[Rfam]
RNA sequence: GAGAGCCAUCCAUCACUACGGAUCGUCCGGCACGUACCUGCCGGUGAAGGAGAAACAUC
Numbered sequence: 001g002a003g004a005g006c007c008a009u010c011c012a013u014c015a016c017u018a019c020g021g022a023u024c025g026u027c028c029g030g031c032a033c034g035u036a037c038c039u040g041c042c043g044g045u046g047a048a049g050g051a052g053a054a055a056c057a058u059c
Stems, first nucleotide, its partner, number of pairs: 009051003013047003027044006
Dot-bracket structure: ........(((.(((...........((((((......))))))))).)))........

A member of the RNA family "msiK RNA" from Frondihabitans australicus, 59 nucleotides long. The base pairs follow the family's consensus structure, which is taken from published work. Rfam classes the family as a cis-regulatory element.